The family of this 125-nucleotide RNA sequence from Streptomyces tsukubensis is "Streptomyces RNA 3920". Taxonomically the source falls in Streptomyces (Bacteria, Bacillati, Actinomycetes, Streptomycetaceae). Rfam's curators write: Identified by deep sequencing of transcriptome at the end of exponential growth phase. Sequencing size consistent with northern blot size. Streptomyces specific. For this family Rfam cites "Deep sequencing-based identification of small non-coding RNAs in Streptomyces coelicolor" (Vockenhuber et al., RNA Biol, 2011). The base pairs follow the family's consensus structure. Rfam classes the family as a small RNA.
RNA sequence: GAUAGGCUAUCGACGUUUCUGUGAUUGGACACUGACAUAGAGUCAACUAGCCUUGUGCGCGCGGUUCUUCGCGCGAAGAACCGGGGCGUUCCGAGCCACGAGGGGGGAGGCUCGGAACGCCCGAC
Number, nucleotide and partner (000 for none) at each position: 001g014002a000003u012004a000005g010006g000007c000008u000009a000010u005011c000012g003013a000014c001015g051016u050017u049018u000019c000020u000021g032022u031023g030024a000025u000026u000027g000028g000029a000030c023031a022032c021033u045034g044035a043036c042037a000038u000039a000040g000041a000042g036043u035044c034045a033046a000047c000048u000049a017050g016051c015052c000053u000054u000055g000056u000057g000058c075059g074060c073061g072062c071063g070064g069065u000066u000067c000068u000069u064070c063071g062072c061073g060074c059075g058076a000077a000078g000079a000080a000081c000082c000083g000084g000085g121086g120087c119088g118089u117090u116091c115092c114093g113094a112095g111096c110097c109098a000099c106100g000101a000102g000103g000104g000105g000106g099107g000108a000109g097110g096111c095112u094113c093114g092115g091116a090117a089118c088119g087120c086121c085122c000123g000124a000125c000